[Rfam]
RNA sequence: AUAAUCUUUAAAAUAGUCCAGAGAGGCUGCAAGAUUUAAUAAGUUAAGUUGAAAUAUUACUAUUAUAACUAGGAAUAUUAUAACUUCUUGCAGUCAUGCAAGAAGUUUUUUUAUU
Numbered sequence: 001a002u003a004a005u006c007u008u009u010a011a012a013a014u015a016g017u018c019c020a021g022a023g024a025g026g027c028u029g030c031a032a033g034a035u036u037u038a039a040u041a042a043g044u045u046a047a048g049u050u051g052a053a054a055u056a057u058u059a060c061u062a063u064u065a066u067a068a069c070u071a072g073g074a075a076u077a078u079u080a081u082a083a084c085u086u087c088u089u090g091c092a093g094u095c096a097u098g099c100a101a102g103a104a105g106u107u108u109u110u111u112u113a114u115u
Base pairs, nucleotide, nucleotide: 003036004035005034006033007032008031014029015028016027017026018025044073045072047070048069049068050067051066053064054063055062056061080109082107083106084105085104086103087102088101089100090099091098092097
RNA: PyrR binding site
Organism: Clostridium senegalense